[Rfam]
RNA sequence: UUGACAGCUGUGGAGACUGAACCCUUCUAUUUAUCCACAGAACAGGUACAGCACAGACAGCAGCACUGCCAGCUUCUCCACAGUGUCUCCUCAAUGUGUCUCAACCCUGUUCUGGAGGAACCACCUGUUGAGGUGAGAAGGUAGUUCAGUCUCUUCGUGUCCUGGCAAUCCUUGGCCUGG
Numbered sequence: 001u002u003g004a005c006a007g008c009u010g011u012g013g014a015g016a017c018u019g020a021a022c023c024c025u026u027c028u029a030u031u032u033a034u035c036c037a038c039a040g041a042a043c044a045g046g047u048a049c050a051g052c053a054c055a056g057a058c059a060g061c062a063g064c065a066c067u068g069c070c071a072g073c074u075u076c077u078c079c080a081c082a083g084u085g086u087c088u089c090c091u092c093a094a095u096g097u098g099u100c101u102c103a104a105c106c107c108u109g110u111u112c113u114g115g116a117g118g119a120a121c122c123a124c125c126u127g128u129u130g131a132g133g134u135g136a137g138a139a140g141g142u143a144g145u146u147c148a149g150u151c152u153c154u155u156c157g158u159g160u161c162c163u164g165g166c167a168a169u170c171c172u173u174g175g176c177c178u179g180g
Stems, first nucleotide, its partner, number of pairs: 002167002007161001011157002013153009024141003028138001030137006038109003048101001051099005063086004112130001114128001116126003
RNA: TUC338
Organism: Pitta sordida